[Rfam]
RNA sequence: UGAUAGCUGUGAAGUGUGAGGUUGCUACAUAUAUGUAGGUUAUUCCACGGAGCGAAUGUCAAGUUAUGAAACUGGCGACAA
Numbered sequence: 001u002g003a004u005a006g007c008u009g010u011g012a013a014g015u016g017u018g019a020g021g022u023u024g025c026u027a028c029a030u031a032u033a034u035g036u037a038g039g040u041u042a043u044u045c046c047a048c049g050g051a052g053c054g055a056a057u058g059u060c061a062a063g064u065u066a067u068g069a070a071a072c073u074g075g076c077g078a079c080a081a
Base pairs, nucleotide, nucleotide: 014048015047016046018045019044020043021041025038026037027036028035029034057080058079059078060077063076064075065074066073
A member of the RNA family "S10-Clostridia ribosomal protein leader" from Mobilisporobacter senegalensis, 81 nucleotides long. The match comes from Rfam's covariance-model search (86 bits). The family's consensus secondary structure is taken from published work.